[Rfam]
RNA sequence: CUACGGGGAUGAUAAAAAUCGAACUCUCUCUUUCUGAUGGAUUGGUGGAGAACUAUAAAUUCUGAGUAGC
Numbered sequence: 001c002u003a004c005g006g007g008g009a010u011g012a013u014a015a016a017a018a019u020c021g022a023a024c025u026c027u028c029u030c031u032u033u034c035u036g037a038u039g040g041a042u043u044g045g046u047g048g049a050g051a052a053c054u055a056u057a058a059a060u061u062c063u064g065a066g067u068a069g070c
Stems, first nucleotide, its partner, number of pairs: 001069004
RNA: Small nucleolar RNA SNORD26
Organism: Molossus molossus